[Rfam]
RNA sequence: CGGAUGAGAAGAUGAUGAGACAUGAAUAAUCUUAGGACAGCUUCUGACACAGACCGACAAUGCUGCGUAUGAGAAAAGAUACUUCGUUUCUGAUUCAUCCA
Numbered sequence: 001c002g003g004a005u006g007a008g009a010a011g012a013u014g015a016u017g018a019g020a021c022a023u024g025a026a027u028a029a030u031c032u033u034a035g036g037a038c039a040g041c042u043u044c045u046g047a048c049a050c051a052g053a054c055c056g057a058c059a060a061u062g063c064u065g066c067g068u069a070u071g072a073g074a075a076a077a078g079a080u081a082c083u084u085c086g087u088u089u090c091u092g093a094u095u096c097a098u099c100c101a
Stems, first nucleotide, its partner, number of pairs: 002100006045051002